Shown here is a 63-nucleotide RNA, a member of the family "Fluoride riboswitch aptamer (crcB RNA motif)". Pairs were carried over by alignment from the consensus structure, which is taken from published work. Its family is annotated with response to fluoride and positive regulation of gene expression in the Gene Ontology.
RNA sequence: GUAAACCAGGGUGAUGGGGUUCACCUGUAACCGCUUUUUCCAGCUGAUGACUCCUCUUCCUGU
Numbered sequence: 001g002u003a004a005a006c007c008a009g010g011g012u013g014a015u016g017g018g019g020u021u022c023a024c025c026u027g028u029a030a031c032c033g034c035u036u037u038u039u040c041c042a043g044c045u046g047a048u049g050a051c052u053c054c055u056c057u058u059c060c061u062g063u
Base pairs, nucleotide, nucleotide: 010025011024012023013022016054017053018052019051020050021049033044034043035042